Background: This 48-nucleotide sequence belongs to the Rfam family "gut-2 RNA". The family's RNA type in Rfam is small RNA.
RNA sequence: UGCGUUGGGUGAAUUGGCACUCAAUAAGAACCAAUCGGGGUUAGUUGU
Numbered sequence: 001u002g003c004g005u006u007g008g009g010u011g012a013a014u015u016g017g018c019a020c021u022c023a024a025u026a027a028g029a030a031c032c033a034a035u036c037g038g039g040g041u042u043a044g045u046u047g048u
Stems, first nucleotide, its partner, number of pairs: 004025008029042004
The base pairs follow the family's consensus structure, which is taken from published work.